[Rfam]
RNA sequence: CCAGACGGCCGGAUGACCGCUGUCGGCCUUCGCGCCGGCAGAGGAAAGUCCGGGCUCCACGGGAAACGCGGUGCCGGGUAACGCCCGGCGGGGGCGACCCCAGGGAAAGUGCCACAGAGAGCAGACCGCCAAACCCAGGUUGCCUUCGGGCAGCCGGGCGGCAAGGGUGAAAGGGUGCGGUAAGAGCGCACCGCGGCCUCGGUAACGAGGGCGGCAUGGCAAACCCCACCGGGAGCAAGACCAAGUAGGGACGGCUGGCCGGCGCCUAAGGCUUUAGCGAGCUUUGGGCGACCGGCAGGCGGGUUUUCCGCGCCGCCGUCCGGGUCGGUCGCGCGAGGCGCCUGGCGACAGGCGCCCAAGAGGAAUGGUCAUCCCUCGCGGGUCUUCGGACGCGCGAGGACAGAACCCGGCUUACAGGCCGUCUGGUGUU
Dot-bracket structure: ((((((((((((((((((.((((((((......))))))))....[[[.[[[[[((((.....[[[..((((((((((.....)))))(((((....)))).)((...(((((............(((((...(((.(...............).))).)))..)).......((((((.......))))))(((.(((((....))))).)).)..)))..)))))))))))))...((((......((((((...........................................((((...]]]...)))).)))))).....))))......((((((((....))))))))..........)))))))................................]]]]]]]].).))))))))))....

Rfam assigns this 430-nucleotide RNA sequence from Aliidongia dinghuensis to the family "Bacterial RNase P class A". Ribonuclease P (RNase P) is a ubiquitous endoribonuclease, found in archaea, bacteria and eukarya as well as chloroplasts and mitochondria. Its best characterised activity is the generation of mature 5'-ends of tRNAs by cleaving the 5'-leader elements of precursor-tRNAs. Cellular RNase Ps are ribonucleoproteins. The family's RNA type in Rfam is ribozyme.